[Rfam]
RNA sequence: UUUAUGAGGACAUUUUUGGGACAUUUCACCCAGCCUCACUUUCAGGAGUUCUGUGUGGUCUGUGAAUGACUCCCCGUACCUGUUGU
Numbered sequence: 001u002u003u004a005u006g007a008g009g010a011c012a013u014u015u016u017u018g019g020g021a022c023a024u025u026u027c028a029c030c031c032a033g034c035c036u037c038a039c040u041u042u043c044a045g046g047a048g049u050u051c052u053g054u055g056u057g058g059u060c061u062g063u064g065a066a067u068g069a070c071u072c073c074c075c076g077u078a079c080c081u082g083u084u085g086u
Stems, first nucleotide, its partner, number of pairs: 004083001006081001008080002012077001018075003029064001030062001033059003037055003
RNA: NoRC associated RNA, pRNA
Organism: Microtus ochrogaster